[Rfam]
RNA: Fluoride riboswitch aptamer (crcB RNA motif)
RNA sequence: UUGAUUUUAGGUGAUGACGUUCACCGUUAAACCAAUUUAUUAAUGACGUCUGUUUAAGG
Numbered sequence: 001u002u003g004a005u006u007u008u009a010g011g012u013g014a015u016g017a018c019g020u021u022c023a024c025c026g027u028u029a030a031a032c033c034a035a036u037u038u039a040u041u042a043a044u045g046a047c048g049u050c051u052g053u054u055u056a057a058g059g
Stems, first nucleotide, its partner, number of pairs: 010025004016050006034040001